[Rfam]
RNA sequence: UCUUCAUUUCACACACUCUCUCUCUCGCCUCCCUGACCGGUGAGAGAGUGUGAGAAAUGAAGAGA
Numbered sequence: 001u002c003u004u005c006a007u008u009u010c011a012c013a014c015a016c017u018c019u020c021u022c023u024c025u026c027g028c029c030u031c032c033c034u035g036a037c038c039g040g041u042g043a044g045a046g047a048g049u050g051u052g053a054g055a056a057a058u059g060a061a062g063a064g065a
Stems, first nucleotide, its partner, number of pairs: 001063007010054001012052006019045004
Rfam assigns this 65-nucleotide RNA from Pristionchus pacificus to the family "mir-8364 microRNA precursor family". The organism belongs to Pristionchus, within Eukaryota.